RNA sequence: CUCCGAUGAUGUAGAACUCCCAUGCAUAGGAAGUGCCGUAUGACGCUUCGCAAACGCAGCGGUUCC
Numbered sequence: 001c002u003c004c005g006a007u008g009a010u011g012u013a014g015a016a017c018u019c020c021c022a023u024g025c026a027u028a029g030g031a032a033g034u035g036c037c038g039u040a041u042g043a044c045g046c047u048u049c050g051c052a053a054a055c056g057c058a059g060c061g062g063u064u065c066c
Stems, first nucleotide, its partner, number of pairs: 014060001030049006
Small nucleolar RNA U49: a 66-nucleotide RNA from Genlisea aurea. Pairs were carried over by alignment from the consensus structure, which was predicted with CMfinder. Rfam links the family to the GO terms RNA processing and nucleolus. A search with the family's covariance model found it, with a score of 38 bits.